Description:
This 80-nucleotide RNA sequence from Streptococcus agalactiae belongs to the Rfam family "Glycine riboswitch aptamer".
RNA sequence: UGACGUCAUUCAGGAGAAGAAAGUUAGACUUUCGCCGAAGGAAUUACACUCUCAGGUGUCUUAAGACAGGACUGAUUGAC
Numbered sequence: 001u002g003a004c005g006u007c008a009u010u011c012a013g014g015a016g017a018a019g020a021a022a023g024u025u026a027g028a029c030u031u032u033c034g035c036c037g038a039a040g041g042a043a044u045u046a047c048a049c050u051c052u053c054a055g056g057u058g059u060c061u062u063a064a065g066a067c068a069g070g071a072c073u074g075a076u077u078g079a080c
Base pairs, nucleotide, nucleotide: 006079007078008077010075011074012073013072020032021031022030023029034057035056036055037053038052041051042050
About this RNA:
Lineage of the source: Bacteria > Lactobacillales > Streptococcus > Streptococcus agalactiae > Streptococcus agalactiae serogroup III. Rfam's curators put it in the seed alignment. The pairing is the family consensus, mapped onto this sequence.